Rfam assigns this 127-nucleotide RNA sequence from Lewinella sp. 4G2 to the family "SAM riboswitch aptamer (S box leader)". Rfam links the family to the GO term regulation of gene expression. The base pairs follow the family's consensus structure, which is taken from published work.
RNA sequence: AUUUUAUAACGAAGGGUGGAGAGCACGGGCUCCCUGAAACCCUGGCAACCAUUCCUCCGAUGGCUUCGGAUGAAAAGGUGCCAAAUCCCGCCACCGCAGUGCGUUUUGCCCGGUGGAACUAUAAAAU
Numbered sequence: 001a002u003u004u005u006a007u008a009a010c011g012a013a014g015g016g017u018g019g020a021g022a023g024c025a026c027g028g029g030c031u032c033c034c035u036g037a038a039a040c041c042c043u044g045g046c047a048a049c050c051a052u053u054c055c056u057c058c059g060a061u062g063g064c065u066u067c068g069g070a071u072g073a074a075a076a077g078g079u080g081c082c083a084a085a086u087c088c089c090g091c092c093a094c095c096g097c098a099g100u101g102c103g104u105u106u107u108g109c110c111c112g113g114u115g116g117a118a119c120u121a122u123a124a125a126a127u
Stems, first nucleotide, its partner, number of pairs: 001127008013043005021032003026090004044082004049078002052074003091116006